[Rfam]
The family of this 94-nucleotide sequence from Protea cynaroides is "mir-395 microRNA precursor family". Taxonomically the source falls in Protea (Eukaryota, Tracheophyta, Spermatophyta, Mesangiospermae). Pairs were carried over by alignment from the consensus structure, which was predicted with PFOLD. For this family Rfam cites "Computational Identification of Plant MicroRNAs and Their Targets, Including a Stress-Induced miRNA" (Jones-Rhoades and Bartel, Mol Cell, 2004). It scores 64 bits against the family's covariance model.
RNA sequence: GUGUCCCCUGGAGUUCCUCCAUUCACUUCAGCCGAGACUAGUUCUCUGAUACAACUUGCCUAGCUGAAGUGUUUGGAGGAACUCUGGGUGCCAC
Numbered sequence: 001g002u003g004u005c006c007c008c009u010g011g012a013g014u015u016c017c018u019c020c021a022u023u024c025a026c027u028u029c030a031g032c033c034g035a036g037a038c039u040a041g042u043u044c045u046c047u048g049a050u051a052c053a054a055c056u057u058g059c060c061u062a063g064c065u066g067a068a069g070u071g072u073u074u075g076g077a078g079g080a081a082c083u084c085u086g087g088g089u090g091c092c093a094c
Stems, first nucleotide, its partner, number of pairs: 005090001007088003011084011024071009034061001